[Rfam]
This 134-nucleotide RNA from Paenibacillus hemerocallicola belongs to the Rfam family "c-di-AMP riboswitch aptamer (ydaO/yuaA leader)".
The organism belongs to Paenibacillus, within Bacteria.
The match comes from Rfam's covariance-model search (99 bits).

RNA sequence: UCAAAAAAAAGGCCGAAGCUUCUACAAGCGCGGGGAACCCAAUGUUCCGGGGUGAAGCCAUCAUAGGAUGGCAGGGUGAUUGCUCUUUGACCCGAACCCGUCAGCUAACCUCGCAGGCCGAAACAAGGAGAGGA
Number, nucleotide and partner (000 for none) at each position: 001u000002c000003a000004a000005a000006a000007a000008a000009a000010a000011g119012g118013c117014c116015g000016a000017a000018g029019c028020u027021u000022c000023u000024a000025c000026a000027a020028g019029c018030g114031c113032g112033g111034g110035g109036a000037a000038c000039c000040c049041a000042a000043u000044g000045u000046u000047c000048c000049g040050g099051g098052g097053u000054g000055a000056a000057g000058c071059c070060a069061u068062c000063a000064u000065a000066g000067g000068a061069u060070g059071g058072c000073a000074g093075g092076g091077u090078g000079a000080u000081u000082g000083c000084u000085c000086u000087u000088u000089g000090a077091c076092c075093c074094g000095a000096a000097c052098c051099c050100g000101u000102c000103a000104g000105c000106u000107a000108a000109c035110c034111u033112c032113g031114c030115a000116g014117g013118c012119c011120g000121a000122a000123a000124c000125a000126a000127g000128g000129a000130g000131a000132g000133g000134a000